Nucleotides: 071
Stems, first nucleotide, its partner, number of pairs: 001070007010024004026042005047063005
Number, partner (000 for none) and nucleotide at each position: 001070g002069c003068c004067u005066u006065u007064a008000u009000a010024g011023c012022u013021c014000a015000a016000c017000g018000g019000u020000a021013g022012a023011g024010c025000g026042g027041a028040a029039u030038a031000c032000u033000g034000u035000u036000a037000a038030u039029a040028u041027u042026u043000u044000g045000a046000u047063a048062g049061a050060u051059g052000u053000u054000c055000a056000a057000u058000u059051c060050a061049u062048c063047u064007u065006a066005a067004g068003g069002g070001c071000u